[Rfam]
The record is a 96-nucleotide RNA from Miscanthus lutarioriparius, which matches "Small nucleolar RNA Z157/R69/R10" in Rfam. Clan: SNORD52 clan. Lineage of the source: Eukaryota > Euphyllophyta > Liliopsida > Andropogonodae > Miscanthus. The family's RNA type in Rfam is C/D-box small nucleolar RNA. Its family is annotated with nucleolus and RNA processing in the Gene Ontology. The family's consensus secondary structure was predicted with PFOLD.
Nucleotides: 096
Base pairs, nucleotide, nucleotide: 002095004093005092006091007090008089038067040065041064045060046059047058048057049056
Number, partner (000 for none) and nucleotide at each position: 001000a002095u003000a004093g005092g006091a007090g008089c009000g010000g011000u012000g013000a014000u015000g016000a017000g018000c019000a020000a021000u022000c023000u024000u025000u026000u027000g028000u029000g030000g031000a032000c033000u034000a035000g036000a037000g038067u039000u040065u041064c042000u043000g044000a045060u046059a047058c048057u049056a050000a051000c052000a053000c054000g055000g056049u057048a058047g059046u060045a061000u062000u063000u064041g065040a066000c067038g068000a069000c070000c071000a072000a073000a074000c075000c076000c077000u078000u079000g080000g081000c082000u083000g084000u085000c086000u087000g088000a089008g090007c091006u092005c093004c094000c095002a096000a